[Rfam]
RNA sequence: AAUUUCCAGUUGGAACCUAAUGAUUCAUCAGACUCAGAUAUUUAAGUUAACAGUAUUUGAGUCUGAUGAAUCAUUAGGUUCCAGUCAGAAAUU
Numbered sequence: 001a002a003u004u005u006c007c008a009g010u011u012g013g014a015a016c017c018u019a020a021u022g023a024u025u026c027a028u029c030a031g032a033c034u035c036a037g038a039u040a041u042u043u044a045a046g047u048u049a050a051c052a053g054u055a056u057u058u059g060a061g062u063c064u065g066a067u068g069a070a071u072c073a074u075u076a077g078g079u080u081c082c083a084g085u086c087a088g089a090a091a092u093u
Stems, first nucleotide, its partner, number of pairs: 001093006009085034
RNA: mir-580 microRNA precursor family